[Rfam]
RNA sequence: AUACUCCCUCUGUCCCAUAAUAUAAGAACGUUUUUCAAUCUAUGUUAGCUUGAAAAACGUUCUUAUAUUAUGGGACGGAGGGAGUAC
Numbered sequence: 001a002u003a004c005u006c007c008c009u010c011u012g013u014c015c016c017a018u019a020a021u022a023u024a025a026g027a028a029c030g031u032u033u034u035u036c037a038a039u040c041u042a043u044g045u046u047a048g049c050u051u052g053a054a055a056a057a058c059g060u061u062c063u064u065a066u067a068u069u070a071u072g073g074g075a076c077g078g079a080g081g082g083a084g085u086a087c
Stems, first nucleotide, its partner, number of pairs: 003085003007081005013075005019069020040048002

Source information
MIR1120/MIR1122 microRNA precursor family: an 87-nucleotide RNA sequence from Triticum aestivum. Pairs were carried over by alignment from the consensus structure, which was predicted with RNAalifold. A reference for the family is Yao et al. (2007), "Cloning and characterization of microRNAs from wheat (Triticum aestivum L.)", Genome Biol. NCBI's taxonomy places the organism under Eukaryota, Euphyllophyta, Mesangiospermae, Liliopsida, Triticum.